[Rfam]
RNA sequence: CUCUUAUUUCGAGCAGGCUGAGGGAUAUGGCCCUAUGACGCCCAGCAACCGACUGUAAUACCAUUGUGAAAUGGGGCGCAAAUUAUUGCGCUUAGUAAGGCACGGUGCUACUUCCAUCAAAGGUACAAGUGACUUUUGAAAGAUAAGAG
Numbered sequence: 001c002u003c004u005u006a007u008u009u010c011g012a013g014c015a016g017g018c019u020g021a022g023g024g025a026u027a028u029g030g031c032c033c034u035a036u037g038a039c040g041c042c043c044a045g046c047a048a049c050c051g052a053c054u055g056u057a058a059u060a061c062c063a064u065u066g067u068g069a070a071a072u073g074g075g076g077c078g079c080a081a082a083u084u085a086u087u088g089c090g091c092u093u094a095g096u097a098a099g100g101c102a103c104g105g106u107g108c109u110a111c112u113u114c115c116a117u118c119a120a121a122g123g124u125a126c127a128a129g130u131g132a133c134u135u136u137u138g139a140a141a142g143a144u145a146a147g148a149g
Stems, first nucleotide, its partner, number of pairs: 001149008013043001016042003022033003027117004044109004049105002051101001053099002113141001118138006
Rfam assigns this 149-nucleotide sequence from Lysinibacillus sp. BF-4 to the family "SAM riboswitch aptamer (S box leader)".
Rfam links the family to the GO term regulation of gene expression.
The family's consensus secondary structure is taken from published work.